Molybdenum/Tungsten riboswitch aptamer (Moco RNA motif): a 134-nucleotide RNA sequence from Clostridium sp. CAG:265.
[Rfam]
RNA sequence: AUAAUUGAUAUUUUCUAGAGUAUAAAAGUCCUAAGUAUUUAUAUAUAUGGAUUUUAUACCUGAAUUUAAUUCACAGGGUAGUCUUUGAAAAGAGGCUGUCUCCACGUUUUGGGAAGGAAAAUAAGCUUAGGUAA
Number, nucleotide and partner (000 for none) at each position: 001a000002u000003a000004a128005u000006u000007g000008a000009u000010a000011u121012u120013u119014u118015c117016u116017a000018g000019a000020g059021u058022a057023u056024a055025a054026a053027a052028g000029u051030c050031c049032u000033a000034a000035g046036u045037a044038u043039u000040u000041a000042u000043a038044u037045a036046u035047a000048u000049g031050g030051a029052u027053u026054u025055u024056a023057u022058a021059c020060c000061u073062g072063a071064a070065u069066u000067u000068a000069a065070u064071u063072c062073a061074c000075a000076g101077g100078g099079u098080a097081g096082u095083c094084u093085u092086u091087g000088a000089a000090a000091a086092g085093a084094g083095g082096c081097u080098g079099u078100c077101u076102c112103c111104a000105c000106g000107u000108u000109u000110u000111g103112g102113g000114a000115a000116g016117g015118a014119a013120a012121a011122u000123a000124a000125g000126c000127u000128u004129a000130g000131g000132u000133a000134a000
Taxonomically the source falls in Clostridium (Bacteria, Clostridia, Eubacteriales, Clostridiaceae). A search with the family's covariance model found it, with a score of 69 bits.